[Rfam]
RNA: Soft rot Enterobacteriaceae Rev 24 asRNA
Nucleotides: 489
Stems, first nucleotide, its partner, number of pairs: 001105007008097006014090003021085003029082006038076002042072004047066006106488002111483008119474003123471004128467003142153004157385003161381008170372002176229007184219005190214002195211003199208001233368007244259003278303003316357008327345006397419005403413002421439006441463004447458004
Number, partner (000 for none) and nucleotide at each position: 001105g002104g003103c004102u005101g006100g007099u008097c009096a010095u011094g012093a013092c014090a015089u016088c017000g018000a019000c020000a021085a022084a023083c024000u025000u026000g027000g028000a029082c030081u031080g032079c033078u034077g035000c036000u037000u038076g039075c040000a041000a042072a043071u044070g045069a046000u047066g048065c049064g050063g051062g052061u053000a054000a055000u056000u057000c058000g059000u060000a061052a062051u063050c064049u065048g066047u067000c068000u069045u070044c071043g072042u073000g074000g075039g076038u077034c078033a079032g080031u081030a082029g083023g084022u085021u086000g087000a088016g089015a090014u091000a092013g093012u094011u095010g096009u097008g098000c099007g100006c101005c102004a103003g104002c105001u106488c107487g108000u109000u110000a111483c112482u113481g114480a115479g116478g117477a118476u119474g120473u121472u122000c123471g124470u125469g126468c127000c128467g129466u130465c131000a132000u133000u134000a135000a136000u137000a138000c139000g140000c141000a142153g143152g144151a145150u146000g147000c148000a149000a150145a151144u152143c153142c154000c155000u156000a157385c158384u159383g160000g161381c162380g163379c164378c165377g166376a167375c168374g169000c170372c171371a172000c173000a174000a175000u176229c177228u178227u179226g180225c181224g182223g183000u184219u185218g186217a187216a188215u189000u190214g191213c192000u193000c194000a195211u196210u197209c198000u199208c200000u201000u202000c203000c204000a205000a206000c207000u208199g209197g210196a211195a212000c213191g214190c215188a216187u217186u218185c219184a220000c221000u222000u223182c224181c225180g226179c227178a228177g229176g230000c231000a232000a233368c234367a235366g236365c237364a238363u239362u240000u241000u242000c243000c244259g245258c246257u247000c248000a249000a250000a251000u252000a253000c254000c255000a256000a257246a258245g259244c260000c261000a262000a263000c264000a265000c266000a267000a268000a269000c270000a271000g272000a273000a274000a275000a276000a277000u278303u279302g280301c281000c282000c283000a284000u285000a286000g287000a288000a289000u290000a291000u292000u293000c294000a295000g296000u297000a298000c299000a300000a301280g302279c303278a304000u305000g306000u307000u308000a309000a310000u311000c312000a313000u314000c315000a316357a317356u318355g319354c320353g321352c322351u323350g324000a325000u326000a327345u328344g329343a330342g331341a332340g333000a334000g335000c336000a337000g338000g339000a340332c341331u342330u343329u344328c345327a346000a347000c348000g349000g350323c351322a352321g353320c354319g355318c356317a357316u358000a359000c360000a361000c362239g363238a364237u365236g366235c367234u368233g369000a370000a371171u372170g373000a374168c375167g376166u377165c378164g379163g380162c381161g382000g383159c384158a385157g386000c387000g388000a389000c390000u391000u392000u393000u394000u395000c396000a397419g398418a399417a400416u401415g402000a403413g404412u405000u406000c407000a408000u409000c410000a411000u412404a413403c414000c415401c416400a417399u418398u419397c420000a421439c422438a423437u424436a425435g426434c427000c428000a429000a430000a431000a432000u433000a434426g435425u436424u437423a438422u439421g440000a441463u442462c443461g444460g445000a446000a447458g448457g449456a450455u451000a452000a453000c454000u455450g456449u457448c458447u459000a460444c461443c462442g463441a464000a465130g466129a467128c468126g469125u470124a471123u472121a473120g474119c475000g476118a477117u478116c479115u480114u481113u482112a483111g484000c485000a486000u487107c488106g489000g